[Rfam]
RNA sequence: AUGUUUUUCUUGGGGUGCCUUUUAGGCUGAGAUGGUUUAUAAAUCAGACCCAUGGAACUUGAACCAAUUAGUAUUGGCGUAAGAAAGAAAAGCGUUUGCUAG
Numbered sequence: 001a002u003g004u005u006u007u008u009c010u011u012g013g014g015g016u017g018c019c020u021u022u023u024a025g026g027c028u029g030a031g032a033u034g035g036u037u038u039a040u041a042a043a044u045c046a047g048a049c050c051c052a053u054g055g056a057a058c059u060u061g062a063a064c065c066a067a068u069u070a071g072u073a074u075u076g077g078c079g080u081a082a083g084a085a086a087g088a089a090a091a092g093c094g095u096u097u098g099c100u101a102g
Stems, first nucleotide, its partner, number of pairs: 006090005011052004016046001017027004034045004058083004064077004
This 102-nucleotide RNA sequence belongs to the Rfam family "TPP riboswitch aptamer (THI element)". The family has 115 seed sequences and 16,130 matches in Rfam 15.1. It scores 75 bits against the family's covariance model.